[Rfam]
RNA sequence: CACGCGCUCCGGGGCUCGGUGAAAUCCCGAACCGGCGGUGAGAGCCCGCGAACCGCCGCCAGGCGGCCGACCCGGUGGGAUUCCGGGGCCGACGGUCACAGUCCGGAUGAGAGGUGCGCAGC
Numbered sequence: 001c002a003c004g005c006g007c008u009c010c011g012g013g014g015c016u017c018g019g020u021g022a023a024a025u026c027c028c029g030a031a032c033c034g035g036c037g038g039u040g041a042g043a044g045c046c047c048g049c050g051a052a053c054c055g056c057c058g059c060c061a062g063g064c065g066g067c068c069g070a071c072c073c074g075g076u077g078g079g080a081u082u083c084c085g086g087g088g089c090c091g092a093c094g095g096u097c098a099c100a101g102u103c104c105g106g107a108u109g110a111g112a113g114g115u116g117c118g119c120a121g122c
Stems, first nucleotide, its partner, number of pairs: 004119004009114002017029003031102002033091002035049004044089002053066002071087005093105003

FMN riboswitch aptamer (RFN element): a 122-nucleotide RNA from Actinosynnema mirum.
Lineage of the source: Bacteria > Actinomycetes > Pseudonocardiales > Actinosynnema > Actinosynnema mirum.
About the family: The RFN element is a highly conserved domain that is found frequently in the 5'-untranslated regions of prokaryotic mRNAs that encode for flavin mononucleotide (FMN) biosynthesis and transport proteins.